[Rfam]
RNA sequence: CUCUUAUAAAGAGUUGGCUGAGGGACUGGCCCGAUGACGCCCGGCAACCUACCGCAUUUUGCGGAAAGGUGCUAAAUCCUGCAGGAGUAAUCCUGGGAGAUAAGAG
Numbered sequence: 001c002u003c004u005u006a007u008a009a010a011g012a013g014u015u016g017g018c019u020g021a022g023g024g025a026c027u028g029g030c031c032c033g034a035u036g037a038c039g040c041c042c043g044g045c046a047a048c049c050u051a052c053c054g055c056a057u058u059u060u061g062c063g064g065a066a067a068g069g070u071g072c073u074a075a076a077u078c079c080u081g082c083a084g085g086a087g088u089a090a091u092c093c094u095g096g097g098a099g100a101u102a103a104g105a106g
Stems, first nucleotide, its partner, number of pairs: 001106007013042001016041003022032003026081001028079002043073004048069002052064003077098001082095005
A member of the RNA family "SAM riboswitch aptamer (S box leader)" from Falsibacillus pallidus, 106 nucleotides long. It scores 84 bits against the family's covariance model. Lineage of the source: Bacteria > Bacillati > Bacilli > Caryophanales > Falsibacillus. Pairs were carried over by alignment from the consensus structure, which is taken from published work.